[Rfam]
About this RNA:
This 304-nucleotide sequence from Nothophytophthora sp. Chile5 belongs to the Rfam family "Metazoan signal recognition particle RNA". By type it is a non-coding RNA gene. It scores 150 bits against the family's covariance model. Rfam describes the family as follows. The signal recognition particle (SRP) is a universally conserved ribonucleoprotein. The base pairs follow the family's consensus structure, which is taken from published work. Its family is annotated with signal recognition particle, endoplasmic reticulum targeting and SRP-dependent cotranslational protein targeting to membrane, signal sequence recognition in the Gene Ontology.

RNA sequence: ACUGGGUUGAGUGGCGUCAACUUGUAACGGAAAGCUUCUGUCUGGGCAGUGAGGUGUGAGGGUUGUGGUAUGCAGUGUGGUGUCACUAUUCACAGGAUGUGGAUGGCGCGUCCAUCUCAAACCAGGAGUAGACAUUGGGGCGUUGGCGUAAGUCAGCGCACCGAGGUCACUAAGGAAGGGUGUAUCGCCCCAGGCUGGAUAACAGAGCAGGGAAAAGCCCUCGCUCUUGGUAGUGGGAGGAUCUCGUGUCAGAAUCUUGAUGUGUCAUCACUCAGCUACAAACCACAAUUCGAUCACCUUGCGA
Numbered sequence: 001a002c003u004g005g006g007u008u009g010a011g012u013g014g015c016g017u018c019a020a021c022u023u024g025u026a027a028c029g030g031a032a033a034g035c036u037u038c039u040g041u042c043u044g045g046g047c048a049g050u051g052a053g054g055u056g057u058g059a060g061g062g063u064u065g066u067g068g069u070a071u072g073c074a075g076u077g078u079g080g081u082g083u084c085a086c087u088a089u090u091c092a093c094a095g096g097a098u099g100u101g102g103a104u105g106g107c108g109c110g111u112c113c114a115u116c117u118c119a120a121a122c123c124a125g126g127a128g129u130a131g132a133c134a135u136u137g138g139g140g141c142g143u144u145g146g147c148g149u150a151a152g153u154c155a156g157c158g159c160a161c162c163g164a165g166g167u168c169a170c171u172a173a174g175g176a177a178g179g180g181u182g183u184a185u186c187g188c189c190c191c192a193g194g195c196u197g198g199a200u201a202a203c204a205g206a207g208c209a210g211g212g213a214a215a216a217g218c219c220c221u222c223g224c225u226c227u228u229g230g231u232a233g234u235g236g237g238a239g240g241a242u243c244u245c246g247u248g249u250c251a252g253a254a255u256c257u258u259g260a261u262g263u264g265u266c267a268u269c270a271c272u273c274a275g276c277u278a279c280a281a282a283c284c285a286c287a288a289u290u291c292g293a294u295c296a297c298c299u300u301g302c303g304a
Base pairs, nucleotide, nucleotide: 002046003045004023005022006021007020008019009018010017028044029043030042049302050301051300052299053298054297055296056295060291061290062289063288064287065286066282077271078270079269080268081267082266084264087262088261089260090259094258095257096256097255098254100252104251105250106249107248108247109246110245112240113239115238116237117236118235119234121231122230123229124228125227126226127225128224129223131168132167133166135164136163137162138161140159141158142157143156144155145154146153147152170174177221178220179219180218181217188212189211190210195205196204197203